[Rfam]
RNA sequence: AUAAAAGCGAUGAAUAGGAAGAGUAAAUUUAAUUCGACUAUCAGAGAGGAAAGUUCACAGGCUGAAAGACUUUCUAAGUUUGAGAAAUUGAAAACUACCUAGGAGCUGUGGUCUGAAGUUACUUUAAAAAGUUUUAGUAAGACUAACCGUUAACUGCGUUAAAGUGUAAAGUGGAUUUUAUCAAUAAAUGAUAAAAUCAAAUUGGGUGGAACCGCGAGUAUGGACUCGUCCCUUUA
Dot-bracket structure: ......((......((((.......(((((......(((........((((((((............)))))))).))).....)))))........))))...))..((((((.........................))))))..(((.....)))...............((((((((((.....)))))))))).....(((.......(((((......))))))))....